[Rfam]
RNA sequence: CGUCCUCUGCCGUGUGCGACAGCGUGCCUAACAUUCGCCUUGUCCCAUACACACGACACGGGAAUCCAUGACCGGCGCGGUGUGCAUGUCCGUCCCGUGCGGAAAGCCUGAAGCGCCGGCCGCGGGUACCCACUUGAUCCUCGGGAUCAAGGUCGUUUCGCGCGCAUCGGCAUGGUGGAGGGCCU
Numbered sequence: 001c002g003u004c005c006u007c008u009g010c011c012g013u014g015u016g017c018g019a020c021a022g023c024g025u026g027c028c029u030a031a032c033a034u035u036c037g038c039c040u041u042g043u044c045c046c047a048u049a050c051a052c053a054c055g056a057c058a059c060g061g062g063a064a065u066c067c068a069u070g071a072c073c074g075g076c077g078c079g080g081u082g083u084g085c086a087u088g089u090c091c092g093u094c095c096c097g098u099g100c101g102g103a104a105a106g107c108c109u110g111a112a113g114c115g116c117c118g119g120c121c122g123c124g125g126g127u128a129c130c131c132a133c134u135u136g137a138u139c140c141u142c143g144g145g146a147u148c149a150a151g152g153u154c155g156u157u158u159c160g161c162g163c164g165c166a167u168c169g170g171c172a173u174g175g176u177g178g179a180g181g182g183c184c185u
Stems, first nucleotide, its partner, number of pairs: 002183014017169003037153003041149002044145002060131003064127004069122001072119007084107002089103005
6S / SsrS RNA: a 185-nucleotide RNA sequence from Arenimonas fontis. By type it is a non-coding RNA gene. The base pairs follow the family's consensus structure, which is taken from published work. A search with the family's covariance model found it, with a score of 98 bits. Taxonomically the source falls in Arenimonas (Bacteria, Pseudomonadati, Pseudomonadota, Gammaproteobacteria). Rfam describes the family as follows. E. coli 6S RNA was the first non coding RNA to be sequenced, but its function was unknown until recently. It consists of 184 nucleotides that fold into an extended hairpin structure with a large single-stranded internal bulge. The 6S RNA specifically associates with RNA polymerase holoenzyme containing the sigma70 specificity factor.